[Rfam]
RNA sequence: CCGGUCAUUACAUCCUCGCGACUAAUGACAACCUUCAUCCGACGCCACAGAUAAAGCCUCUCAUUAGCCGCGCGAAUCGCUGUAAUAACGGAUCAUAUUUACAACAGCAAUACAUUACUCUGUUUUGCUGGCACUUCCUAGAAGAAAGGGGCCCAAAGAGGCCCCUUUCU
Dot-bracket structure: (((...(..(((....((((.(((((((................................)))))))...))))......)))..)..))).....((.......................))........................((((((......)))))).....
RNA: SraG RNA
Organism: Dickeya dadantii